[Rfam]
Shown here is a 129-nucleotide RNA sequence from Sciurus carolinensis, a member of the family "Small nucleolar RNA SNORA51". The organism belongs to Sciurus, within Eukaryota. The family's consensus secondary structure was predicted with PFOLD.
RNA sequence: AGACUCCUGGUGCUUGCCACAAGCUGUGUUCUUACAGUGACAGUAGAGAAAGAGGAAGUAUAAUAAACAUUUCUCACAUACAUACCUCAGUUCAGGUCUUGUGCCUGGUCUGUAAGUAGGGCACUAAAA
Dot-bracket structure: .(..((((...........(......(((....)))......).........))))..)............(((.((..........(((.((((((.....)))))).)))...)).)))........
ACA51 is a member of the H/ACA class of snoRNA that guide the sites of modification of uridines to pseudouridines.